[Rfam]
RNA: glmS glucosamine-6-phosphate activated ribozyme aptamer
RNA sequence: AAAAGAAACUAAGCGCCAGAACUUUUUAAGUUGACGAGGACUGGAAUCAUCGAACAUUCGGCGGGUAUUCCAGAGGUGACUACAACCUUAGACCUUCUACAAAUCUAAAAGGUGACUUUUAGGACAAAGGAAAGUAAGUAGUGAU
Number, nucleotide and partner (000 for none) at each position: 001a000002a000003a000004a000005g000006a000007a000008a000009c000010u000011a000012a000013g000014c000015g000016c000017c000018a000019g000020a032021a031022c030023u029024u028025u000026u000027u000028a024029a023030g022031u021032u020033g000034a000035c000036g000037a000038g000039g000040a000041c073042u072043g071044g070045a069046a000047u000048c000049a000050u061051c060052g059053a058054a000055c000056a000057u000058u053059c052060g051061g050062c000063g000064g000065g000066u000067a000068u000069u045070c044071c043072a042073g041074a088075g087076g086077u085078g000079a000080c000081u000082a000083c000084a000085a077086c076087c075088u074089u000090a000091g000092a135093c134094c000095u132096u131097c130098u000099a000100c000101a000102a000103a000104u000105c122106u121107a120108a119109a118110a117111g116112g000113u000114g000115a000116c111117u110118u109119u108120u107121a106122g105123g000124a000125c000126a000127a000128a000129g000130g097131a096132a095133a000134g093135u092136a000137a000138g000139u000140a000141g000142u000143g000144a000145u000